Annotation: The family of this 104-nucleotide RNA from Variovorax sp. PBS-H4 is "Glycine riboswitch aptamer". On this family, see Mandal et al., Science 2004: "A glycine-dependent riboswitch that uses cooperative binding to control gene expression". From the family's description: This family represents the bacterial glycine riboswitch. Glycine riboswitches usually consist of two metabolite-binding aptamers domains with similar structures in tandem. The source organism's lineage runs through Bacteria, Pseudomonadota, Burkholderiales, Comamonadaceae and Variovorax.

RNA sequence: UGCCUCACUGCAGGAGAGCGGGCCGCUGCGAGGCGGCCCCACCGAAGGCGCAAACUCCCAUAAACGCUCAGGUCCGCUCGCAACAACGAGCCUGUACUGCAUCA
Numbered sequence: 001u002g003c004c005u006c007a008c009u010g011c012a013g014g015a016g017a018g019c020g021g022g023c024c025g026c027u028g029c030g031a032g033g034c035g036g037c038c039c040c041a042c043c044g045a046a047g048g049c050g051c052a053a054a055c056u057c058c059c060a061u062a063a064a065c066g067c068u069c070a071g072g073u074c075c076g077c078u079c080g081c082a083a084c085a086a087c088g089a090g091c092c093u094g095u096a097c098u099g100c101a102u103c104a
Stems, first nucleotide, its partner, number of pairs: 006099002009096005020039006041073003044069002048067003054061001